RNA sequence: UCAUAGCCCUGUACAAUGCUGCUUGAUCCAUAUGCAACAAGGCAGCACUGUAAAGAAGCCGA
Numbered sequence: 001u002c003a004u005a006g007c008c009c010u011g012u013a014c015a016a017u018g019c020u021g022c023u024u025g026a027u028c029c030a031u032a033u034g035c036a037a038c039a040a041g042g043c044a045g046c047a048c049u050g051u052a053a054a055g056a057a058g059c060c061g062a
Stems, first nucleotide, its partner, number of pairs: 009055002012052004017047005023042002
Notes:
mir-103/107 microRNA precursor family: a 62-nucleotide RNA from Homo sapiens. The family's consensus secondary structure was predicted with RNAalifold. The literature on the family includes a 2002 paper in Genes Dev by Mourelatos et al., "miRNPs: a novel class of ribonucleoproteins containing numerous microRNAs". Rfam's curators write: This family consists of the mammalian microRNA (miRNA) precursors mir-103 and mir107. Animal miRNAs are transcribed as ~70nt precursors and subsequently processed by the Dicer enzyme to give a ~22nt product. In this case the mature sequence comes from the 3' arm of the precursor. The extents of the hairpin precursors are not generally known and are estimated based on hairpin prediction. The organism belongs to Homo, within Eukaryota.